The family of this 91-nucleotide RNA from Apostasia shenzhenica is "mir-160 microRNA precursor family".
Gene Ontology terms of the family: miRNA-mediated post-transcriptional gene silencing and RISC complex.
A reference for the family is Rhoades et al. (2002), "Prediction of plant microRNA targets", Cell.
[Rfam]
RNA sequence: UAACGCCUGGCUCCCUGUAUGCCACACGUGUGGACUGAUUCAUGCAGGGAUGAUUGGACAUGGCGGGUGGCAUGCGAGGAGCCAAGCAUUC
Numbered sequence: 001u002a003a004c005g006c007c008u009g010g011c012u013c014c015c016u017g018u019a020u021g022c023c024a025c026a027c028g029u030g031u032g033g034a035c036u037g038a039u040u041c042a043u044g045c046a047g048g049g050a051u052g053a054u055u056g057g058a059c060a061u062g063g064c065g066g067g068u069g070g071c072a073u074g075c076g077a078g079g080a081g082c083c084a085a086g087c088a089u090u091c
Base pairs, nucleotide, nucleotide: 002090003089005087006086008084009083010082011081012080013079014078016076017075018074019073020072021071022070023069024068027065028064029063